[Rfam]
RNA sequence: UGACGGGGGCCCGCACAAGCGGUGGAGUAUGUGGUUUAAUUCGAUGCAACGCGAAGAACCUUACCUGGCCUUGACAUGUCUGGAAUUCUGCAGAGAUGCGGAAGUGCCUUCGGGAACCAGAACACAGGUGCUGCAUGGCUGUCGUCAGCUCGUGUCGUGAGAUGUUGGGUUAAGUCCCGCAACGAGCGCAACCCUUGUCCUUAGUUGCCAGCACGUAAUGGUGGGAACUCUAAGGAGACUGCCGGUGACAAACCGGAGGAAGGUGGGGAUGACGUCAAGUCAUCAUGGCCCUUACGGCCAGGGCUACACACGUACUACAAUGGUCGGUACAGAGGGUUGCGAGACCGCGAGGUGGAGCCAAUCCCAGAAAGCCGAUCCCAGUCCGGAUCGAAGUCUGCAACUCGACUUCGUGAAGUCGGAAUCGCUAGUAAUCGCAGAUCAGCUAUGCUGCGGUGAAUACGUUCCCGGGCCUUGUACACACCGCCCGUCACACCAUGGGAGUGAGUUGCUCCAGAAGCCGUUAGCCUAACCGCAAGGAGGGCGACGACCACGGAGUGGUUCAUGACUGGGGUGAAGUCGUAACAAGG
Numbered sequence: 001u002g003a004c005g006g007g008g009g010c011c012c013g014c015a016c017a018a019g020c021g022g023u024g025g026a027g028u029a030u031g032u033g034g035u036u037u038a039a040u041u042c043g044a045u046g047c048a049a050c051g052c053g054a055a056g057a058a059c060c061u062u063a064c065c066u067g068g069c070c071u072u073g074a075c076a077u078g079u080c081u082g083g084a085a086u087u088c089u090g091c092a093g094a095g096a097u098g099c100g101g102a103a104g105u106g107c108c109u110u111c112g113g114g115a116a117c118c119a120g121a122a123c124a125c126a127g128g129u130g131c132u133g134c135a136u137g138g139c140u141g142u143c144g145u146c147a148g149c150u151c152g153u154g155u156c157g158u159g160a161g162a163u164g165u166u167g168g169g170u171u172a173a174g175u176c177c178c179g180c181a182a183c184g185a186g187c188g189c190a191a192c193c194c195u196u197g198u199c200c201u202u203a204g205u206u207g208c209c210a211g212c213a214c215g216u217a218a219u220g221g222u223g224g225g226a227a228c229u230c231u232a233a234g235g236a237g238a239c240u241g242c243c244g245g246u247g248a249c250a251a252a253c254c255g256g257a258g259g260a261a262g263g264u265g266g267g268g269a270u271g272a273c274g275u276c277a278a279g280u281c282a283u284c285a286u287g288g289c290c291c292u293u294a295c296g297g298c299c300a301g302g303g304c305u306a307c308a309c310a311c312g313u314a315c316u317a318c319a320a321u322g323g324u325c326g327g328u329a330c331a332g333a334g335g336g337u338u339g340c341g342a343g344a345c346c347g348c349g350a351g352g353u354g355g356a357g358c359c360a361a362u363c364c365c366a367g368a369a370a371g372c373c374g375a376u377c378c379c380a381g382u383c384c385g386g387a388u389c390g391a392a393g394u395c396u397g398c399a400a401c402u403c404g405a406c407u408u409c410g411u412g413a414a415g416u417c418g419g420a421a422u423c424g425c426u427a428g429u430a431a432u433c434g435c436a437g438a439u440c441a442g443c444u445a446u447g448c449u450g451c452g453g454u455g456a457a458u459a460c461g462u463u464c465c466c467g468g469g470c471c472u473u474g475u476a477c478a479c480a481c482c483g484c485c486c487g488u489c490a491c492a493c494c495a496u497g498g499g500a501g502u503g504a505g506u507u508g509c510u511c512c513a514g515a516a517g518c519c520g521u522u523a524g525c526c527u528a529a530c531c532g533c534a535a536g537g538a539g540g541g542c543g544a545c546g547a548c549c550a551c552g553g554a555g556u557g558g559u560u561c562a563u564g565a566c567u568g569g570g571g572u573g574a575a576g577u578c579g580u581a582a583c584a585a586g587g
Base pairs, nucleotide, nucleotide: 001478002477003475004474005473007472008471009470010469011468012467013466015462016461019425020424021423022422023421024318026316027315028314029313030312031311032310033309034307035306040055041054042053043052064302065301066300067299068298069297070296077124078123079121080120081119082118083117086103087102088101089100090099091098092097105116107114108113127291128290130289131288132287133286136285137284138280139279140278141276143274144273148187149186150185151184152183153182154163155162156161166179167178168177169176193268194267195266196265198236199235200234201233202232203231204230208225209224212223213222214221239259240258242256243255244254245253246252322377323376324375325374326373327372328371334365335364336363339358340357344353345352346351384415389410390409391408392407393406394405395404431454432453433452434451435450436449437448481586483583486579487578491573492572493571494570496568497567498566501563502562503561504560505559506558507557508556509555510554511553512552517548519546520545521544522543524542525541526540527539530537531536
Rfam assigns this 587-nucleotide part of an RNA from Dyella choica to the family "Bacterial small subunit ribosomal RNA".